[Rfam]
RNA sequence: GGUCACGAGUGUCGACCGCACGCCUCCGGACGUGGUCGACCGGCAACCGCGCCACCCGGCACGGUGCCUUCCGGAGAAGACCCGGGUCGCGCCACGGUGGCGCGGCCAAGGACGGGAA
Number, nucleotide and partner (000 for none) at each position: 001g082002g081003u080004c079005a000006c000007g000008a000009g041010u000011g040012u039013c038014g037015a036016c035017c000018g000019c000020a000021c032022g031023c000024c000025u000026c000027c000028g000029g000030a000031c022032g021033u000034g000035g016036u015037c014038g013039a012040c011041c009042g068043g067044c066045a000046a000047c064048c063049g062050c000051g060052c059053c000054a000055c000056c000057c000058g000059g052060c051061a000062c049063g048064g047065u000066g044067c043068c042069u000070u000071c000072c000073g000074g000075a000076g000077a000078a000079g004080a003081c002082c001083c000084g000085g107086g106087u105088c104089g103090c102091g101092c100093c099094a098095c000096g000097g000098u094099g093100g092101c091102g090103c089104g088105g087106c086107c085108a000109a000110g000111g000112a000113c000114g000115g000116g000117a000118a000